[Rfam]
RNA sequence: GUUGGAACGAGCCCAACGUGCAAAACUUAGUCUUUCGUUAACAGCAGUUUUGUUCGUUCGGCUCGCGUCAAUA
Numbered sequence: 001g002u003u004g005g006a007a008c009g010a011g012c013c014c015a016a017c018g019u020g021c022a023a024a025a026c027u028u029a030g031u032c033u034u035u036c037g038u039u040a041a042c043a044g045c046a047g048u049u050u051u052g053u054u055c056g057u058u059c060g061g062c063u064c065g066c067g068u069c070a071a072u073a
Stems, first nucleotide, its partner, number of pairs: 001072003004068001008065006017056002020053004025048002
Rfam assigns this 73-nucleotide sequence from Apostichopus japonicus to the family "mir-375 microRNA precursor family".
Pairs were carried over by alignment from the consensus structure, which was predicted with RNAalifold.
Its family is annotated with RISC complex and miRNA-mediated post-transcriptional gene silencing in the Gene Ontology.
A reference for the family is Chen et al. (2005), "The developmental miRNA profiles of zebrafish as determined by small RNA cloning", Genes Dev.
It scores 52 bits against the family's covariance model.